Description:
This 68-nucleotide RNA from Xanthomonas albilineans belongs to the Rfam family "int-alpA RNA". Rfam 15.1 lists 577 matches to the family in 491 species. Rfam classes the family as a small RNA. From the family's description: Acidobacteria (1 example), Planctomycetes (1 example), Proteobacteria.

[Rfam]
RNA sequence: ACCACGGCCAGGACGGCCAUCCGAAAGCGGGAAACCCUCACCCGUUGCCGUGGUGUUCCUUUGAAGGG
Numbered sequence: 001a002c003c004a005c006g007g008c009c010a011g012g013a014c015g016g017c018c019a020u021c022c023g024a025a026a027g028c029g030g031g032a033a034a035c036c037c038u039c040a041c042c043c044g045u046u047g048c049c050g051u052g053g054u055g056u057u058c059c060u061u062u063g064a065a066g067g068g
Stems, first nucleotide, its partner, number of pairs: 001054008011022003027045005035068004